[Rfam]
RNA sequence: GGUGCCUGACGAGAAGGACCCUUUAGUACGAGAGGAACAGGGGUUCGCCGCCUCUAGUUUAUCAGUUGUCUGGCAAGGCAUUGCUGAGCAGCCACGCGGUAGUGGAUAAGAGCUGAAUGCAUCUAAGCUCGAAGUCAUCUUGAAAAAGAGGCACCCAUAGAACGCUCAUAAAUGAUGAGUUUGAUGGAAGUGGGGUGUAAGUACUGAGGUUCGCCGAGGUAUUCAGCCCGCACCGACCAAAGUUCUUUUGA
Numbered sequence: 001g002g003u004g005c006c007u008g009a010c011g012a013g014a015a016g017g018a019c020c021c022u023u024u025a026g027u028a029c030g031a032g033a034g035g036a037a038c039a040g041g042g043g044u045u046c047g048c049c050g051c052c053u054c055u056a057g058u059u060u061a062u063c064a065g066u067u068g069u070c071u072g073g074c075a076a077g078g079c080a081u082u083g084c085u086g087a088g089c090a091g092c093c094a095c096g097c098g099g100u101a102g103u104g105g106a107u108a109a110g111a112g113c114u115g116a117a118u119g120c121a122u123c124u125a126a127g128c129u130c131g132a133a134g135u136c137a138u139c140u141u142g143a144a145a146a147a148g149a150g151g152c153a154c155c156c157a158u159a160g161a162a163c164g165c166u167c168a169u170a171a172a173u174g175a176u177g178a179g180u181u182u183g184a185u186g187g188a189a190g191u192g193g194g195g196u197g198u199a200a201g202u203a204c205u206g207a208g209g210u211u212c213g214c215c216g217a218g219g220u221a222u223u224c225a226g227c228c229c230g231c232a233c234c235g236a237c238c239a240a241a242g243u244u245c246u247u248u249u250g251a
Stems, first nucleotide, its partner, number of pairs: 001155007010142004016046008047100005055094001057092001062087005067080005103137003110130005160245004164180005185239003190233003193229003201222005208215001